[Rfam]
RNA sequence: GAAGCUGACUAGAUAGUCGCCGCGUCCACAUGUUAGGACGGGGAGGAAAGUCCGGACUCCAUAGAGCAAGAUGCCGGUUAACGGCCGGACACCGUAAGGUGAUGAACAGUGCCACAGAGAAUAGUCUGCCUAAUUUCCACAAGGAAACGGCGAUGGUGAAACGGUGGGGUAAGAGCCCACCGCGGACGUGGUAACACGGACGGCACGGUAAACUCCAUCUGGAGCAAGACCAAAUAGGCAGGUAAUGACGUGGCUCGCGUCGCCUGCGGGUAGGUCGCUUGAGCGUCAGGUAACGAAACGCCUAGAGGAAUGACUAUCCACGACAGAAUCCGGCUUACCGGCCAGCUUCACCC
Numbered sequence: 001g002a003a004g005c006u007g008a009c010u011a012g013a014u015a016g017u018c019g020c021c022g023c024g025u026c027c028a029c030a031u032g033u034u035a036g037g038a039c040g041g042g043g044a045g046g047a048a049a050g051u052c053c054g055g056a057c058u059c060c061a062u063a064g065a066g067c068a069a070g071a072u073g074c075c076g077g078u079u080a081a082c083g084g085c086c087g088g089a090c091a092c093c094g095u096a097a098g099g100u101g102a103u104g105a106a107c108a109g110u111g112c113c114a115c116a117g118a119g120a121a122u123a124g125u126c127u128g129c130c131u132a133a134u135u136u137c138c139a140c141a142a143g144g145a146a147a148c149g150g151c152g153a154u155g156g157u158g159a160a161a162c163g164g165u166g167g168g169g170u171a172a173g174a175g176c177c178c179a180c181c182g183c184g185g186a187c188g189u190g191g192u193a194a195c196a197c198g199g200a201c202g203g204c205a206c207g208g209u210a211a212a213c214u215c216c217a218u219c220u221g222g223a224g225c226a227a228g229a230c231c232a233a234a235u236a237g238g239c240a241g242g243u244a245a246u247g248a249c250g251u252g253g254c255u256c257g258c259g260u261c262g263c264c265u266g267c268g269g270g271u272a273g274g275u276c277g278c279u280u281g282a283g284c285g286u287c288a289g290g291u292a293a294c295g296a297a298a299c300g301c302c303u304a305g306a307g308g309a310a311u312g313a314c315u316a317u318c319c320a321c322g323a324c325a326g327a328a329u330c331c332g333g334c335u336u337a338c339c340g341g342c343c344a345g346c347u348u349c350a351c352c353c
Base pairs, nucleotide, nucleotide: 001349002348003347004346005345006344007343009341010340012318013317014316015315016314017313018312020043021042023040024039025038026037027036048336049335050334052333053332054331055330056329057224058223059222060221064256065255066254067253069220070219071218072217073216074088075087076086077085078084089103090101091100092099093098104215105214109213110212111209112208113207126155128151129150130149134147135146136145137144138143163181164180165179166178167177168176182204183202184201187198188197189196190195228276229275230274231273238267239266240265241264242263243262247261248260249259250258251257283301284300285299286298289294
Bacterial RNase P class A: a 353-nucleotide RNA from Candidatus Nitrotoga fabula. The family's RNA type in Rfam is ribozyme. A search with the family's covariance model found it, with a score of 312 bits. Taxonomically the source falls in Candidatus Nitrotoga (Bacteria, Pseudomonadota, Betaproteobacteria, Nitrosomonadales). Rfam's curators write: Ribonuclease P (RNase P) is a ubiquitous endoribonuclease, found in archaea, bacteria and eukarya as well as chloroplasts and mitochondria. Its best characterised activity is the generation of mature 5'-ends of tRNAs by cleaving the 5'-leader elements of precursor-tRNAs. Rfam links the family to the GO terms tRNA processing, ribonuclease P activity and dimeric ribonuclease P complex.